[Rfam]
Shown here is a 109-nucleotide RNA, a member of the family "c-di-GMP-II-GAG riboswitch aptamer". The literature on the family includes a 2017 paper in Proc Natl Acad Sci U S A by Weinberg et al., "Bioinformatic analysis of riboswitch structures uncovers variant classes with altered ligand specificity". The family's consensus secondary structure is taken from published work. The family is grouped with related families in Rfam's "c-di-GMP_II riboswitch clan". Rfam's curators put it in the seed alignment.
Nucleotides: 109
Stems, first nucleotide, its partner, number of pairs: 003107003007104005014084002022079008038097002040093005
Number, partner (000 for none) and nucleotide at each position: 001000g002000a003107g004106g005105u006000a007104c008103c009102g010101g011100g012000a013000a014084g015083c016000a017000g018000u019000g020000a021000a022079c023078u024077c025076u026075g027074a028073g029072c030000c031000a032000c033000c034000c035000c036000a037000c038097g039096g040093u041092c042091g043090c044089c045000u046000g047000a048000u049000g050000g051000u052000g053000c054000g055000c056000u057000g058000c059000c060000g061000c062000g063000a064000a065000c066000c067000g068000u069000c070000a071000g072029g073028c074027u075026c076025a077024g078023a079022g080000c081000g082000a083015g084014c085000c086000a087000g088000u089044g090043g091042c092041g093040a094000g095000a096039c097038c098000g099000c100011c101010c102009c103008g104007g105005a106004c107003u108000g109000g